Rfam assigns this 152-nucleotide RNA from Sphaerisporangium krabiense to the family "c-di-AMP riboswitch aptamer (ydaO/yuaA leader)". NCBI's taxonomy places the organism under Bacteria, Bacillati, Actinomycetota, Streptosporangiaceae, Sphaerisporangium. The family has 106 seed sequences and 7,607 matches in Rfam 15.1. Rfam describes the family as follows. This family represents a conserved RNA structure found upstream of the ydaO and yuaA genes in Bacillus subtilis and related genes in other bacteria. The ydaO/yuaA element is thought to act as a genetic 'off' switch for the ydaO and yuaA genes in its native state.
RNA sequence: GCGCGCGCACCGCCGAGUCCGCCCUGUGCGGAGCCGGGGACCCACUUAUCUCCCCGGGGUGAAUCGGGGCGCCAUUCCCACGGACGCUCCGUAGGGCGAACUUCCACGCCCGAACCCGUCAGCUAACCCGGUAGGCGGCCGUGGAAGGAGUC
Numbered sequence: 001g002c003g004c005g006c007g008c009a010c011c012g013c014c015g016a017g018u019c020c021g022c023c024c025u026g027u028g029c030g031g032a033g034c035c036g037g038g039g040a041c042c043c044a045c046u047u048a049u050c051u052c053c054c055c056g057g058g059g060u061g062a063a064u065c066g067g068g069g070c071g072c073c074a075u076u077c078c079c080a081c082g083g084a085c086g087c088u089c090c091g092u093a094g095g096g097c098g099a100a101c102u103u104c105c106a107c108g109c110c111c112g113a114a115c116c117c118g119u120c121a122g123c124u125a126a127c128c129c130g131g132u133a134g135g136c137g138g139c140c141g142u143g144g145a146a147g148g149a150g151u152c
Stems, first nucleotide, its partner, number of pairs: 011137004018032003033132006043056001057117003065091007094111004